RNA: SAH (S-adenosyl-L-homocysteine) riboswitch aptamer
RNA sequence: CCUCUCGAGGAGCGUUGCAGCGCUGCACAGGUGAAUGACACGGCGUCAGGCUCGAGACGGCUGCCGCCCGCGUCAUCGGAUGCGCCGCGGCGAUGCUGGCAACGACGCUCACCCACC
Dot-bracket structure: ..((((((............(((((...............)))))......))))))............................................................